[Rfam]
RNA sequence: UUCUUCAAGCGGAUCUGUGUCCAGCACUCCCGUUCACCUCUGUGUUUCGGUCGAGCGCUGGGCAGUUCGACGAUUUCGGAGCCAUACUUUUUUAUGUGUAUGGCACUUAACGGUGUCCUGUCGACAGGUCCCAGAUUAAUGUUCUACGCCGGGUCACCCUCGGGUCUUGAGCUCCCGCCUUGGUGAGCUCGGCCUGAGAGCCUGGAGGUAGACGGCGUCAUAUUUCAUGUCCCUUUGCCGAUUGGCCAUUGGCUAGUGAGGUUAGGGAAAAACCAUGACUUGCCAACAUCC
Dot-bracket structure: ..........((((((((((((((..((((((..(((....)))...)))..)))..)))))).......((((...((.(((..................))).))............))))))))))))...........((....(((((.........((((..((((((((.....)).))))))))))......))))).)).....((((((((........(((((..(((....((((...)))).....))).)))))......)))))..))).......
The family of this 291-nucleotide RNA sequence from Penicillium cosmopolitanum is "A. fumigatus sRNA Afu_309".
By type it is a small RNA.
The literature on the family includes a 2008 paper in Nucleic Acids Res by Jochl et al., "Small ncRNA transcriptome analysis from Aspergillus fumigatus suggests a novel mechanism for regulation of protein synthesis".
The match comes from Rfam's covariance-model search (209 bits).
Lineage of the source: Eukaryota > Pezizomycotina > leotiomyceta > Eurotiomycetidae > Penicillium.